RNA sequence: GAGCAUCGGAACGGCGAUCUCCUCCUCCCAAUGCCUUCCGAUAACGAUCGGCAACUCUCCUCCUCCCUGUUGCUGGUCAGGUUUGAAAGCCCGACGGAUCUCCUCCCCCGUCGGGCUUUUCAU
Numbered sequence: 001g002a003g004c005a006u007c008g009g010a011a012c013g014g015c016g017a018u019c020u021c022c023u024c025c026u027c028c029c030a031a032u033g034c035c036u037u038c039c040g041a042u043a044a045c046g047a048u049c050g051g052c053a054a055c056u057c058u059c060c061u062c063c064u065c066c067c068u069g070u071u072g073c074u075g076g077u078c079a080g081g082u083u084u085g086a087a088a089g090c091c092c093g094a095c096g097g098a099u100c101u102c103c104u105c106c107c108c109c110g111u112c113g114g115g116c117u118u119u120u121c122a123u
Stems, first nucleotide, its partner, number of pairs: 007040003011036001013035004046078010087118011
RNA: Alphaproteobacterial ar14